[Rfam]
RNA sequence: GGCUGGCCUAUCCCGACGGGGAGAAAAGCGGGCACCCACCCGCCUGACCAGCCGAUCUAUUCAGCAUGG
Numbered sequence: 001g002g003c004u005g006g007c008c009u010a011u012c013c014c015g016a017c018g019g020g021g022a023g024a025a026a027a028g029c030g031g032g033c034a035c036c037c038a039c040c041c042g043c044c045u046g047a048c049c050a051g052c053c054g055a056u057c058u059a060u061u062c063a064g065c066a067u068g069g
Stems, first nucleotide, its partner, number of pairs: 001053006008046001011022004028043005035069002
RNA: int-alpA RNA